[Rfam]
RNA sequence: GAUAUGCGUUGAAGCGGGAGGUUGCGGCUGAAAUACGCCGGUUUUUCCGUGGAGUAUGUCCGAUUUUAAACCGGGCGAUAA
Dot-bracket structure: .............(((.((((...((((........))))...)))))))......((((...(((......))).)))).